[Rfam]
RNA sequence: GCGUGUCUGGCUCCUUGUAUGCCAUUCGCGGCAUCCCUCUGUGGGGGAAGGCCGUCGGGGAUGGCGUGCGUGGAGCCAUGCAUGC
Numbered sequence: 001g002c003g004u005g006u007c008u009g010g011c012u013c014c015u016u017g018u019a020u021g022c023c024a025u026u027c028g029c030g031g032c033a034u035c036c037c038u039c040u041g042u043g044g045g046g047g048a049a050g051g052c053c054g055u056c057g058g059g060g061a062u063g064g065c066g067u068g069c070g071u072g073g074a075g076c077c078a079u080g081c082a083u084g085c
Stems, first nucleotide, its partner, number of pairs: 001085006008078007016070009027059001029057001
RNA: mir-160 microRNA precursor family
Organism: Salvia splendens